[Rfam]
RNA sequence: GCUUGUUCUCAGGGCAGGGUGAAAAUCCCGACCGGCGGUAAUCCUUCCACGGAAGGGGAGCCCGCGAGCGCCCAUGGCCCACCGGCCAUGGGGUCAGCAGAUCCGGUGCGAAGCCGGGGCCGACGGUUACAGUCCGGAUGAAAGAGAAUGAGC
Numbered sequence: 001g002c003u004u005g006u007u008c009u010c011a012g013g014g015c016a017g018g019g020u021g022a023a024a025a026u027c028c029c030g031a032c033c034g035g036c037g038g039u040a041a042u043c044c045u046u047c048c049a050c051g052g053a054a055g056g057g058g059a060g061c062c063c064g065c066g067a068g069c070g071c072c073c074a075u076g077g078c079c080c081a082c083c084g085g086c087c088a089u090g091g092g093g094u095c096a097g098c099a100g101a102u103c104c105g106g107u108g109c110g111a112a113g114c115c116g117g118g119g120c121c122g123a124c125g126g127u128u129a130c131a132g133u134c135c136g137g138a139u140g141a142a143a144g145a146g147a148a149u150g151a152g153c
Stems, first nucleotide, its partner, number of pairs: 003151008017029003031133002033122002035065004060120002068098002102118005124136003
Rfam assigns this 153-nucleotide RNA sequence from Azospirillum doebereinerae to the family "FMN riboswitch aptamer (RFN element)". The RFN element is a highly conserved domain that is found frequently in the 5'-untranslated regions of prokaryotic mRNAs that encode for flavin mononucleotide (FMN) biosynthesis and transport proteins.